RNA sequence: ACUGUUCCUCGUUAGCAUGAGGCGUUUGCACAAACAGAGGCUACUGCCCAAAAACGUCGAAAGACGCCAAUGGGUAGACCAGGGCUUGCCGGAUUAAGGCUUGACCUAAGGUAGCUGGUUCUUCCUGACCUACGUUGUGCACUGCUGAAAACCUACGAGUGGGGAACCAC
Numbered sequence: 001a002c003u004g005u006u007c008c009u010c011g012u013u014a015g016c017a018u019g020a021g022g023c024g025u026u027u028g029c030a031c032a033a034a035c036a037g038a039g040g041c042u043a044c045u046g047c048c049c050a051a052a053a054a055c056g057u058c059g060a061a062a063g064a065c066g067c068c069a070a071u072g073g074g075u076a077g078a079c080c081a082g083g084g085c086u087u088g089c090c091g092g093a094u095u096a097a098g099g100c101u102u103g104a105c106c107u108a109a110g111g112u113a114g115c116u117g118g119u120u121c122u123u124c125c126u127g128a129c130c131u132a133c134g135u136u137g138u139g140c141a142c143u144g145c146u147g148a149a150a151a152c153c154u155a156c157g158a159g160u161g162g163g164g165a166a167c168c169a170c
Stems, first nucleotide, its partner, number of pairs: 005166006011156002013097001015152001021146003027141007040115005046075005055066004082106002085103001088100003117130003
RNA: M-box riboswitch aptamer (ykoK leader)
Organism: Citrifermentans bemidjiense